[Rfam]
RNA: Small nucleolar RNA MBII-202
Organism: Clupea harengus
RNA sequence: UGAUGACAAACUCCGGAAUCUCUGUAUCACCGUGAUGAUUCCUUGAACCCUUUUAGCUGAUGACUGCCAAAACAAAAAAAUGUUGUU
Numbered sequence: 001u002g003a004u005g006a007c008a009a010a011c012u013c014c015g016g017a018a019u020c021u022c023u024g025u026a027u028c029a030c031c032g033u034g035a036u037g038a039u040u041c042c043u044u045g046a047a048c049c050c051u052u053u054u055a056g057c058u059g060a061u062g063a064c065u066g067c068c069a070a071a072a073c074a075a076a077a078a079a080a081u082g083u084u085g086u087u
Stems, first nucleotide, its partner, number of pairs: 002087007